[Rfam]
RNA sequence: UGACCUCAGAUCAGUCGUGAGUACCCGCUGAACUUAAGCAUAUCAAUAAGCGGAGGAAAAGAAACUAACCAGGAUUCCCUUGGUAACGGCGAGUGAAGAGGGAAGAGCCCAGCACCGAAGCCUGCGGCAGUUUUGCUGUUAGGCAAUGUGGUGUGUGGGUCGGCUCGCGGGACCAUCACUCCACUCGAAGUCCAGCAUUGAGUAUGGCAAUCACUGGAUUUGGCCCAUAGAGGGUGAGAGGCCCGUACGGGUGGAGGUUCAGACAUGUACGAUGGUUCACUAGGCCGGCCUCAGAGUCGGGUUGUUUGAGAUUGCAGCCCAAAGAGGGUGGUAAACUCCAUCCAAGGCUAAAUACUGCCACGAGUCCGAUAGCGAACAAGUACCAUGAGGGAAAGUUGAAAAGUACUCUGAAGAGAGAGUAAACAGUACGUGAAACCGCAUGCAGGUAAA
Dot-bracket structure: .......................((((((.....((....))......))))).).........((....))...(((((.....((.....))....)))))..((((...(((((.((((((((((......))))).))))..).)))))....((.((((.(..(.(((((((..(((((((...(.(((..........)))).................(...)..((.......)).....)))))))...............)))))))..)..))))).))........(((((((........))))))).....(((((........)))))..)))).................................((....))...............((((....)))).................................
A member of the RNA family "Eukaryotic large subunit ribosomal RNA" from Vidua macroura, 450 nucleotides of a longer RNA. The organism belongs to Vidua, within Eukaryota. Clan: LSU clan. The base pairs follow the family's consensus structure, which is taken from published work.